[Rfam]
RNA sequence: GGAUAAUCCCGGGUGACCGGGGAAAAGCCGCGACAGGCUGGUUGGCGCGACUCCUCUGAAACCAGAUCGCAAGAUUUGGGGAGGCAUAAUUCACCGGUUCCACUGGCGCGUUCGCGCGUGCCAGUAUCGCGAAAAAAGGAACCGUGCGGCGAGGGACGAUUAGAAACCGUUCCGAGUUGAGUCAAGUAGUUCAGGCAGGUUUCGAGCCUGGGCGAAUCGCAGUUGCCAAAAGGUAUUGGUUGCUACUGCGCAUCAGCACGGAUGGACGACUCUGGCGGGUUUCAAAAAUAAUAAGUUGAGCCUGCCAAAAGAAAAACGCCGAAAGGCGGAACAAAACGAGAGUCCGGACCGGGAAGGCCACGCAGGCUGGGCAGGCCGCGUGAAAAACUUCCGGGCGUCGGCGAUGUUAAAAACGACACCGCCGGGCUGUGAAAGAAAAGCAACUUGAGAGUGAAGAGGCGAGACCCGUGGCGUCGGGCGAACGCGCUGUCAAAAACGGCGGCUGACCCGGUGCUAUUGUGGAGACGCGAAAGAAAUUACAGGCGUGUCUCAACCUGGUUCGCAGGCCGGUGGCGCAACCACCAGUUGAAGCGAGCUGAAAAGCCUCACUCGAAAUUCAGCGACCGCAAGGCGCUGGACGGCCCUGCUACGAGGCCGAAAACUCCGCUUGCCGUGGAGAAUGGCGUCGGGAAGCCAGCAGCCCCCGCGAGGGUGCGCGCCUAAUGUUGGCUUGGGAAAGAGAGCAUGGCGAACUCC
Dot-bracket structure: .......(((((....)))))....((.((((.(((.....))).)))).)).........((((((......))))))...............(((((((....(((((.[[[[[)))))......]]]]].....)))))))..((((..(((((.....[[[[[.)))))..)))).......(.((((((((..]]]]]..)))))))).)..[[[[[.((((....))))..((((((..]]]]].......................(((((((((...............)))))))))..........((((....)))).......................(((((...(((..((.........)).)))......)))))............((((......)))).....................))))))...(((....((((............(((((((......((((((.....)))))).....)))))))......(.((((((((..............)))))))).)....((((((...(.(((((.....))))).).....)))))).......)))).)))....(((((((.((....)))))))))(((((..[[[[...)))))....((((((.....))))))..]]]]........(((((((((.(((....)))...))......)))))))..........(((.........))).
RNA: MISL RNA